[Rfam]
RNA sequence: CUCAAUGACUGGAGUUCUCCAGAAUAAAGAACGUCGCCCGAAUCAGGGCA
Numbered sequence: 001c002u003c004a005a006u007g008a009c010u011g012g013a014g015u016u017c018u019c020c021a022g023a024a025u026a027a028a029g030a031a032c033g034u035c036g037c038c039c040g041a042a043u044c045a046g047g048g049c050a
Stems, first nucleotide, its partner, number of pairs: 009022005036049004